[Rfam]
RNA sequence: CCAAAGGCUCUUUUAAGAGCCGCCCACUUUUUCAAUAAAAGAGCUU
Number, nucleotide and partner (000 for none) at each position: 001c000002c000003a000004a000005a000006g021007g020008c019009u018010c017011u016012u000013u000014u000015a000016a011017g010018a009019g008020c007021c006022g000023c000024c000025c000026a000027c000028u000029u000030u000031u000032u000033c000034a000035a000036u000037a000038a000039a000040a000041g000042a000043g000044c000045u000046u000